[Rfam]
RNA sequence: UAUUUGCUGUGAUGACUCCUAUUAGGACGGUAUCUGAAGGGGGUCACUUUAAAGUGCACCCCAGCUGAUUAUACCAAAAUUGAAUAUGGUAUCUGAGCAAGUC
Numbered sequence: 001u002a003u004u005u006g007c008u009g010u011g012a013u014g015a016c017u018c019c020u021a022u023u024a025g026g027a028c029g030g031u032a033u034c035u036g037a038a039g040g041g042g043g044u045c046a047c048u049u050u051a052a053a054g055u056g057c058a059c060c061c062c063a064g065c066u067g068a069u070u071a072u073a074c075c076a077a078a079a080u081u082g083a084a085u086a087u088g089g090u091a092u093c094u095g096a097g098c099a100a101g102u103c
Stems, first nucleotide, its partner, number of pairs: 002102006040062004

Shown here is a 103-nucleotide sequence from Panicum virgatum, a member of the family "Small nucleolar RNA Z118/Z121/Z120".
The family's consensus secondary structure was predicted with PFOLD.
The match comes from Rfam's covariance-model search (75 bits).
The family's RNA type in Rfam is C/D-box small nucleolar RNA.